[Rfam]
A member of the RNA family "mir-181 microRNA precursor family" from Muraenolepis orangiensis, 81 nucleotides long. Rfam 15.1 lists 3,490 matches to the family in 650 species. The base pairs follow the family's consensus structure, which was predicted with PFOLD.

RNA sequence: GGACUUGGGGGAACAUUCAACGCUGUCGGUGAGUUUUUGACUCAGAGAAACCAUCGGGCGUAGAGUGUACCCUUAGGCCUC
Numbered sequence: 001g002g003a004c005u006u007g008g009g010g011g012a013a014c015a016u017u018c019a020a021c022g023c024u025g026u027c028g029g030u031g032a033g034u035u036u037u038u039g040a041c042u043c044a045g046a047g048a049a050a051c052c053a054u055c056g057g058g059c060g061u062a063g064a065g066u067g068u069a070c071c072c073u074u075a076g077g078c079c080u081c
Stems, first nucleotide, its partner, number of pairs: 001081002004077005014067005020061003026057006033051004